The family of this 135-nucleotide RNA sequence from Sphaerotilus montanus is "Guanidine-I riboswitch aptamer". The pairing is the family consensus, mapped onto this sequence. The family has 100 seed sequences and 1,509 matches in Rfam 15.1.
RNA sequence: CUGCAAGGCCGCUAGGGUUCCGGCGCUGCACCACGCGGCGCGACUGGUCCGAGAGCGACCGGCCUCAAGCACCCGGUGCCCGACCACGGCGCCGACGGUGCUCAGGCUCCACGGCGGGACAAAAGCCCGGGAGGU
Number, nucleotide and partner (000 for none) at each position: 001c000002u000003g000004c000005a000006a000007g060008g059009c000010c057011g056012c055013u000014a000015g050016g049017g000018u000019u000020c047021c046022g044023g041024c040025g039026c038027u037028g036029c000030a000031c000032c000033a000034c000035g000036c028037g027038g026039c025040g024041c023042g000043a000044c022045u000046g021047g020048u000049c016050c015051g000052a000053g000054a000055g012056c011057g010058a000059c008060c007061g108062g107063c106064c105065u104066c000067a000068a000069g000070c000071a000072c000073c000074c000075g000076g000077u000078g000079c000080c000081c000082g000083a000084c000085c000086a000087c000088g000089g000090c000091g000092c000093c000094g000095a000096c000097g000098g000099u000100g000101c000102u000103c000104a065105g064106g063107c062108u061109c000110c130111a000112c133113g000114g000115c000116g128117g127118g126119a000120c000121a000122a000123a000124a000125g000126c118127c117128c116129g000130g110131g000132a000133g112134g000135u000